[Rfam]
Nucleotides: 155
Base pairs, nucleotide, nucleotide: 004152005151006150007149008148009147010146017029018028019027031135032134033125034124035067036066037065038064062123063122071100072099073098074097075096105121106120107119108118109117127138128137129136
Number, partner (000 for none) and nucleotide at each position: 001000a002000a003000g004152g005151a006150u007149c008148u009147u010146c011000g012000g013000g014000g015000u016000a017029g018028g019027g020000u021000g022000a023000a024000a025000u026000u027019c028018c029017c030000g031135a032134c033125c034124g035067g036066c037065g038064g039000u040000a041000a042000u043000g044000g045000u046000u047000u048000g049000c050000g051000a052000c053000g054000c055000a056000a057000a058000u059000c060000u061000a062123g063122c064038c065037c066036g067035c068000g069000a070000c071100u072099c073098u074097c075096g076000c077000a078000u079000c080000g081000u082000u083000c084000g085000u086000c087000a088000u089000g090000a091000a092000c093000g094000a095000u096075c097074g098073g099072g100071a101000c102000u103000g104000a105121u106120c107119u108118g109117g110000u111000g112000c113000g114000a115000u116000u117109c118108c119107a120106g121105a122063g123062c124034c125033g126000a127138c128137g129136g130000u131000a132000c133000a134032g135031u136129c137128c138127g139000g140000a141000u142000g143000g144000g145000a146010g147009a148008a149007g150006a151005u152004c153000a154000a155000g
FMN riboswitch aptamer (RFN element): a 155-nucleotide sequence from Saccharibacillus sacchari.
Taxonomically the source falls in Saccharibacillus sacchari (Bacteria, Bacillota, Bacilli, Paenibacillaceae).
A search with the family's covariance model found it, with a score of 116 bits.